[Rfam]
Background
Rfam assigns this 199-nucleotide RNA from Paenibacillus arenilitoris to the family "c-di-AMP riboswitch aptamer (ydaO/yuaA leader)".
RNA sequence: UUUGAAGGAUCGCUUAAUUUCCUUGUCCGGCAAGGAAAGCGGGGGAACCAUUGAAGCGAUGCGCGAGCGGUGUGAGAGCCGCCUGCCGUAUCGCAUGGGGUGAAUCCCGGUACGGAUACCAUGGCAUUCCGUACCGGGUAGGGCGACUCUCACCGCCCGAAUCCGACAGCUAACCUCGUAAGCGUGGAAGGGCAGCUUG
Numbered sequence: 001u002u003u004g005a006a007g008g009a010u011c012g013c014u015u016a017a018u019u020u021c022c023u024u025g026u027c028c029g030g031c032a033a034g035g036a037a038a039g040c041g042g043g044g045g046a047a048c049c050a051u052u053g054a055a056g057c058g059a060u061g062c063g064c065g066a067g068c069g070g071u072g073u074g075a076g077a078g079c080c081g082c083c084u085g086c087c088g089u090a091u092c093g094c095a096u097g098g099g100g101u102g103a104a105u106c107c108c109g110g111u112a113c114g115g116a117u118a119c120c121a122u123g124g125c126a127u128u129c130c131g132u133a134c135c136g137g138g139u140a141g142g143g144c145g146a147c148u149c150u151c152a153c154c155g156c157c158c159g160a161a162u163c164c165g166a167c168a169g170c171u172a173a174c175c176u177c178g179u180a181a182g183c184g185u186g187g188a189a190g191g192g193c194a195g196c197u198u199g
Stems, first nucleotide, its partner, number of pairs: 011184004018038009039179006049097002098164003106138011141158004
Rfam links the family to the GO terms regulation of gene expression and cyclic-di-AMP binding.